[Rfam]
RNA sequence: UGAGCGAGCUAUGCGAUAGCGUAAACGUUCUAGGUUUAUGAGGAAAGUCCGAGCAUCAUAGAGCAGGAUAGCUGAUAACGUCAGCCGAGGGUGACCUUAGAGCCAGUGCAACAGAAAUAUACCGCCAACUUUUGUUGGUAAGGGUGGAAAGGUGGGGUAAAAGCCCACCAGAAUGGCGGAGACGUCAUUGCUAUGUAAACCUUAUCCGAUGCAACACCAAUGGUAGCUUGCAAGUCAAUGGCUGCUCGUCAGACUUGGGGCUAUAGGUGGCUAGAGCUGUGCGGCGACGUACAGUCCAGAUAGAUUAUCGCACUCGACAAAACUCGGCUUAUCGGUUCGGUCACAUU
Numbered sequence: 001u002g003a004g005c006g007a008g009c010u011a012u013g014c015g016a017u018a019g020c021g022u023a024a025a026c027g028u029u030c031u032a033g034g035u036u037u038a039u040g041a042g043g044a045a046a047g048u049c050c051g052a053g054c055a056u057c058a059u060a061g062a063g064c065a066g067g068a069u070a071g072c073u074g075a076u077a078a079c080g081u082c083a084g085c086c087g088a089g090g091g092u093g094a095c096c097u098u099a100g101a102g103c104c105a106g107u108g109c110a111a112c113a114g115a116a117a118u119a120u121a122c123c124g125c126c127a128a129c130u131u132u133u134g135u136u137g138g139u140a141a142g143g144g145u146g147g148a149a150a151g152g153u154g155g156g157g158u159a160a161a162a163g164c165c166c167a168c169c170a171g172a173a174u175g176g177c178g179g180a181g182a183c184g185u186c187a188u189u190g191c192u193a194u195g196u197a198a199a200c201c202u203u204a205u206c207c208g209a210u211g212c213a214a215c216a217c218c219a220a221u222g223g224u225a226g227c228u229u230g231c232a233a234g235u236c237a238a239u240g241g242c243u244g245c246u247c248g249u250c251a252g253a254c255u256u257g258g259g260g261c262u263a264u265a266g267g268u269g270g271c272u273a274g275a276g277c278u279g280u281g282c283g284g285c286g287a288c289g290u291a292c293a294g295u296c297c298a299g300a301u302a303g304a305u306u307a308u309c310g311c312a313c314u315c316g317a318c319a320a321a322a323c324u325c326g327g328c329u330u331a332u333c334g335g336u337u338c339g340g341u342c343a344c345a346u347u
Stems, first nucleotide, its partner, number of pairs: 001343003005339006011332001012312007020040007028032001045330003049327005054211004061247004066207005071085005086100001087098004101202002106200002108196003122143002124139006151169006171191001172189007215269004227260003232255001239251004276295008
This 347-nucleotide RNA sequence from Ruminococcus sp. CAG:57 belongs to the Rfam family "Bacterial RNase P class A". It scores 259 bits against the family's covariance model. Lineage of the source: Bacteria > Bacillota > Clostridia > Oscillospiraceae > Ruminococcus. Gene Ontology terms of the family: ribonuclease P activity, dimeric ribonuclease P complex and tRNA processing.